[Rfam]
RNA sequence: GGCCGCCGAGGAUACCCGAAGCCGCAGCGAUGCGGCUGGUCGAGAAAUUCUCC
Number, nucleotide and partner (000 for none) at each position: 001g000002g000003c000004c000005g000006c000007c000008g000009a000010g000011g000012a000013u000014a000015c000016c000017c000018g000019a000020a037021g036022c035023c034024g033025c032026a031027g000028c000029g000030a000031u026032g025033c024034g023035g022036c021037u020038g000039g000040u000041c000042g000043a000044g000045a000046a000047a000048u000049u000050c000051u000052c000053c000

This 53-nucleotide RNA belongs to the Rfam family "leuA-Halobacteria RNA".
Rfam classes the family as a cis-regulatory element.
Rfam's curators put it in the seed alignment.